[Rfam]
RNA sequence: UCAGCGGUGCACGACUGGCGUCGGGUGGAUUCACCACCGGGGAGUGCAAGCGAGCCGGCAUCGCCCGCCUGGGUGCCCCUC
Number, nucleotide and partner (000 for none) at each position: 001u000002c000003a000004g051005c050006g000007g000008u048009g047010c046011a045012c044013g000014a000015c041016u040017g069018g068019c067020g066021u000022c000023g000024g000025g037026u036027g035028g034029a000030u000031u000032c000033a000034c028035c027036a026037c025038c000039g000040g016041g015042g000043a000044g012045u011046g010047c009048a008049a000050g005051c004052g000053a000054g000055c000056c000057g000058g076059c075060a074061u073062c072063g000064c000065c000066c020067g019068c018069c017070u000071g000072g062073g061074u060075g059076c058077c000078c000079c000080u000081c000
Annotation: Rfam assigns this 81-nucleotide RNA sequence from Saccharothrix variisporea to the family "ZMP/ZTP riboswitch aptamer (pfl RNA motif)". The organism belongs to Saccharothrix, within Bacteria. Gene Ontology terms of the family: regulation of purine nucleotide biosynthetic process and one-carbon metabolic process.